[Rfam]
RNA sequence: CUGCCCAAGGAGCGUUGCAACGGCCAGCCAUUUGGUGCCGUCAGGCUUGGGCUUCCUGCUUUUACUGCCCACCCCCUCCGGCAACCACGCUCGCCUGUU
Dot-bracket structure: ..((((((............((((............))))......))))))...............................................

A member of the RNA family "SAH (S-adenosyl-L-homocysteine) riboswitch aptamer" from Giesbergeria anulus, 99 nucleotides long. The source organism's lineage runs through Bacteria, Pseudomonadota, Burkholderiales, Comamonadaceae and Giesbergeria.